[Rfam]
RNA sequence: AUACUCCCUCUGUAAACUAAUGUAAGAGUGUUUAGAUCACUAUUUUAGUGAUAUAAACGUUCUUAUAUUAGUUUACGGAGGGAGUAC
Numbered sequence: 001a002u003a004c005u006c007c008c009u010c011u012g013u014a015a016a017c018u019a020a021u022g023u024a025a026g027a028g029u030g031u032u033u034a035g036a037u038c039a040c041u042a043u044u045u046u047a048g049u050g051a052u053a054u055a056a057a058c059g060u061u062c063u064u065a066u067a068u069u070a071g072u073u074u075a076c077g078g079a080g081g082g083a084g085u086a087c
Stems, first nucleotide, its partner, number of pairs: 003085003007081005013075005019069016036052006

This 87-nucleotide RNA from Triticum aestivum belongs to the Rfam family "MIR1120/MIR1122 microRNA precursor family".
It scores 88 bits against the family's covariance model.
Taxonomically the source falls in Triticum (Eukaryota, Streptophytina, Euphyllophyta, commelinids).